The family of this 113-nucleotide RNA sequence from Aquibium carbonis is "EcpR1".
By type it is a small RNA.
The organism belongs to Aquibium, within Bacteria.
Its family is annotated with negative regulation of cell cycle, regulation of translation in response to stress and mRNA binding in the Gene Ontology.
Perviously named SmelC291, SmrC10, or Sra33. According to its overproduction phenotype it was renamed Elongated Cell Phenotype RNA1. Induced by stress,EcpR1 negatively regulates cell cycle master regulatory genes dnaA and gcrA at post-transcriptional level by base pairing between its strongly conserved GC-rich loop and the target mRNAs. It's regulation is hfq-independent but requires RNase E to regulate dnaA.
It scores 107 bits against the family's covariance model.
RNA sequence: AUACCCCAUGAUGCUCAGGUCCGCCGCAUCUCCUGGGUUCCGUGGGGUUGGCCGGCCGGUGCUGACGUCAAGUGGCCUCCUCGUACCGCUGUCAGUCGCCGGCCGGCCGCCUU
Numbered sequence: 001a002u003a004c005c006c007c008a009u010g011a012u013g014c015u016c017a018g019g020u021c022c023g024c025c026g027c028a029u030c031u032c033c034u035g036g037g038u039u040c041c042g043u044g045g046g047g048u049u050g051g052c053c054g055g056c057c058g059g060u061g062c063u064g065a066c067g068u069c070a071a072g073u074g075g076c077c078u079c080c081u082c083g084u085a086c087c088g089c090u091g092u093c094a095g096u097c098g099c100c101g102g103c104c105g106g107c108c109g110c111c112u113u
Stems, first nucleotide, its partner, number of pairs: 003048008014037006050108011